[Rfam]
RNA sequence: CCAGAGGGCCGGGCGGCCGCGUCACGCGCAAGCGUGCCGAGGAAAGUCCGGGCUCCACGGAACGACGGUGGCGGGUAACGCCCGCCGGCUUCGGCCUUGCGGUUGAGGUCAGGGACAGUGCAACAGAGAGCAGACGGCCUGGGCUUCGGCCCGGUCAAGGUGAAAGGGUGCGGUAAGAGCGCACCGCGCGGCCGGUAACGGUCGUGGCACGGUAAACCCCACCGGGAGCAAGACCGAAUAGGGGCGGCAUGGGUGUCUUCGGGCAUCCGGGGUGUGUUUCCACUCGCUGCCCGGGUUGGUUGCUUGAGCGUGUCGGUAACGGCACGCCUAGAGGAAUGGUCGCCUAUCCUCCGUAACGGAGGUGGACAGAACCCGGCUUACAGGCCCUCUGGCAAA
Numbered sequence: 001c002c003a004g005a006g007g008g009c010c011g012g013g014c015g016g017c018c019g020c021g022u023c024a025c026g027c028g029c030a031a032g033c034g035u036g037c038c039g040a041g042g043a044a045a046g047u048c049c050g051g052g053c054u055c056c057a058c059g060g061a062a063c064g065a066c067g068g069u070g071g072c073g074g075g076u077a078a079c080g081c082c083c084g085c086c087g088g089c090u091u092c093g094g095c096c097u098u099g100c101g102g103u104u105g106a107g108g109u110c111a112g113g114g115a116c117a118g119u120g121c122a123a124c125a126g127a128g129a130g131c132a133g134a135c136g137g138c139c140u141g142g143g144c145u146u147c148g149g150c151c152c153g154g155u156c157a158a159g160g161u162g163a164a165a166g167g168g169u170g171c172g173g174u175a176a177g178a179g180c181g182c183a184c185c186g187c188g189c190g191g192c193c194g195g196u197a198a199c200g201g202u203c204g205u206g207g208c209a210c211g212g213u214a215a216a217c218c219c220c221a222c223c224g225g226g227a228g229c230a231a232g233a234c235c236g237a238a239u240a241g242g243g244g245c246g247g248c249a250u251g252g253g254u255g256u257c258u259u260c261g262g263g264c265a266u267c268c269g270g271g272g273u274g275u276g277u278u279u280c281c282a283c284u285c286g287c288u289g290c291c292c293g294g295g296u297u298g299g300u301u302g303c304u305u306g307a308g309c310g311u312g313u314c315g316g317u318a319a320c321g322g323c324a325c326g327c328c329u330a331g332a333g334g335a336a337u338g339g340u341c342g343c344c345u346a347u348c349c350u351c352c353g354u355a356a357c358g359g360a361g362g363u364g365g366a367c368a369g370a371a372c373c374c375g376g377c378u379u380a381c382a383g384g385c386c387c388u389c390u391g392g393c394a395a396a
Base pairs, nucleotide, nucleotide: 001392002391003390004389005388006387007386008385009384010383011381012344013343014342015341016340017339018338020039021038023036024035025034026033027032044379045378046377048376049375050374051373052372053228054227055226056225061279062278066224067223068222069221070220071085072084073083074082075081086112087110088109089108090107091106092105093104094103095102096101113219114218118217119216120213121212135159137155138154139153141151142150167185168184169183170182171181172180186208187206188205189204190203191202192201193200194199232301233300234299235298242292243291244290245289246288247287270285271284272283273282274281308327309326310325311324312323313322314321315320
RNA: Bacterial RNase P class A
Organism: Sphingomonas sp. Leaf231